[Rfam]
RNA: Small nucleolar RNA SNORD22
RNA sequence: UUCCAGAGAGGACACAGAAGUCUGUUGUCCUGUCUUCAGCACAGAGCCUGUAAUGAUGAAGCAAGCCACAGGGCUGGCUGAAGAGAAGCUUGUUCCAGAAGGGACUAUCUGGGGGAC
Numbered sequence: 001u002u003c004c005a006g007a008g009a010g011g012a013c014a015c016a017g018a019a020g021u022c023u024g025u026u027g028u029c030c031u032g033u034c035u036u037c038a039g040c041a042c043a044g045a046g047c048c049u050g051u052a053a054u055g056a057u058g059a060a061g062c063a064a065g066c067c068a069c070a071g072g073g074c075u076g077g078c079u080g081a082a083g084a085g086a087a088g089c090u091u092g093u094u095c096c097a098g099a100a101g102g103g104a105c106u107a108u109c110u111g112g113g114g115g116a117c
Stems, first nucleotide, its partner, number of pairs: 001116004